This 297-nucleotide RNA belongs to the Rfam family "Archaeal RNase P".
The sequence is in the family's curated seed alignment.

RNA sequence: GGAUGCAGGAGGACUGCUGACAGACUUCGAGUCUGAGGAAAGUCCCCUCUCCAUAGUGCAGGCGGUCGACACAAGUCGAGACACAGAAAUGGGUCGGUCAAUGGUGCAGAAACGAACGAUGAGUGGUGUGUACGAUGAAUCCGGAAGGACGAGAUUGCCAUAUUGUCGAUGAGACGAGCAACCCCGCUGGAGCAAGUCCAAACAGUCCCGUUAAUGUUGCACGCACAGGGACAGGUAGGAUGCUAAGUUGAAUGCAGUCACCGAAAGGUAACAGAAAGGGGCUUACUCCCUGCAUUC
Numbered sequence: 001g002g003a004u005g006c007a008g009g010a011g012g013a014c015u016g017c018u019g020a021c022a023g024a025c026u027u028c029g030a031g032u033c034u035g036a037g038g039a040a041a042g043u044c045c046c047c048u049c050u051c052c053a054u055a056g057u058g059c060a061g062g063c064g065g066u067c068g069a070c071a072c073a074a075g076u077c078g079a080g081a082c083a084c085a086g087a088a089a090u091g092g093g094u095c096g097g098u099c100a101a102u103g104g105u106g107c108a109g110a111a112a113c114g115a116a117c118g119a120u121g122a123g124u125g126g127u128g129u130g131u132a133c134g135a136u137g138a139a140u141c142c143g144g145a146a147g148g149a150c151g152a153g154a155u156u157g158c159c160a161u162a163u164u165g166u167c168g169a170u171g172a173g174a175c176g177a178g179c180a181a182c183c184c185c186g187c188u189g190g191a192g193c194a195a196g197u198c199c200a201a202a203c204a205g206u207c208c209c210g211u212u213a214a215u216g217u218u219g220c221a222c223g224c225a226c227a228g229g230g231a232c233a234g235g236u237a238g239g240a241u242g243c244u245a246a247g248u249u250g251a252a253u254g255c256a257g258u259c260a261c262c263g264a265a266a267g268g269u270a271a272c273a274g275a276a277a278g279g280g281g282c283u284u285a286c287u288c289c290c291u292g293c294a295u296u297c
Stems, first nucleotide, its partner, number of pairs: 001297003005293005010287002012259006021035005040284003044281005049192004056222004061188005066079005080095003084091001096183002102180002105177001117168003121163001123161005140149002196241004205232005

Its Rfam clan is "RNaseP clan".